[Rfam]
RNA: sroD RNA
RNA sequence: CUGCGUGACGAAGCCCGCGCUAAAGUAGACAAUAAAGCCUGAGCUAAGAGUGAAUCGCCAGACGCCGGCUAAGCCGGCGUUUUUUA
Numbered sequence: 001c002u003g004c005g006u007g008a009c010g011a012a013g014c015c016c017g018c019g020c021u022a023a024a025g026u027a028g029a030c031a032a033u034a035a036a037g038c039c040u041g042a043g044c045u046a047a048g049a050g051u052g053a054a055u056c057g058c059c060a061g062a063c064g065c066c067g068g069c070u071a072a073g074c075c076g077g078c079g080u081u082u083u084u085u086a
Stems, first nucleotide, its partner, number of pairs: 016057002019039001021037001061081008